[Rfam]
RNA sequence: AUGAUGAUAAGGGGAGAGACUGUAGCAAUUUUAGUGUUGACAGCGCCGAAGGAGCAAACGAGUUCGUGAAUCUCUCAGGCAAAAAGACUCUUAUUUGACG
Number, nucleotide and partner (000 for none) at each position: 001a000002u000003g000004a000005u000006g095007a094008u093009a092010a091011g090012g089013g088014g000015a000016g000017a000018g000019a000020c043021u042022g041023u040024a000025g000026c000027a000028a000029u000030u000031u000032u000033a000034g000035u000036g000037u000038u000039g000040a023041c022042a021043g020044c000045g080046c079047c078048g076049a075050a000051g000052g074053a073054g072055c000056a000057a000058a067059c066060g000061a000062g000063u000064u000065c000066g059067u058068g000069a000070a000071u000072c054073u053074c052075u049076c048077a000078g047079g046080c045081a000082a000083a000084a000085a000086g000087a000088c013089u012090c011091u010092u009093a008094u007095u006096u000097g000098a000099c000100g000
This 100-nucleotide RNA sequence from Bacillus solimangrovi belongs to the Rfam family "Glycine riboswitch aptamer". The pairing is the family consensus, mapped onto this sequence.